A member of the RNA family "Glycine riboswitch aptamer" from Moraxella macacae, 194 nucleotides long.
This family represents the bacterial glycine riboswitch.
On this family, see Mandal et al., Science 2004: "A glycine-dependent riboswitch that uses cooperative binding to control gene expression".
RNA sequence: AAUGAUAAAUCUGGAGAGUGUGUUUUUUGUAAAAACACCACCGAAGGGGAAAAAACGACUUUUGACGGCUUAGCAAAUUUACGUUGUUAGCCCAUGUUACAUAUUAUUCUAUACUGCAUUUUAUUCUAUGCUACAUUUUAUGUUGCGUGUCAAAAUUCGUUGAAAAUCUCAGGUAACAGGACAGAUGGGGCACU
Numbered sequence: 001a002a003u004g005a006u007a008a009a010u011c012u013g014g015a016g017a018g019u020g021u022g023u024u025u026u027u028u029g030u031a032a033a034a035a036c037a038c039c040a041c042c043g044a045a046g047g048g049g050a051a052a053a054a055a056c057g058a059c060u061u062u063u064g065a066c067g068g069c070u071u072a073g074c075a076a077a078u079u080u081a082c083g084u085u086g087u088u089a090g091c092c093c094a095u096g097u098u099a100c101a102u103a104u105u106a107u108u109c110u111a112u113a114c115u116g117c118a119u120u121u122u123a124u125u126c127u128a129u130g131c132u133a134c135a136u137u138u139u140a141u142g143u144u145g146c147g148u149g150u151c152a153a154a155a156u157u158c159g160u161u162g163a164a165a166a167u168c169u170c171a172g173g174u175a176a177c178a179g180g181a182c183a184g185a186u187g188g189g190g191c192a193c194u
Stems, first nucleotide, its partner, number of pairs: 006189001009186005020038004040174003043170002047168002053161002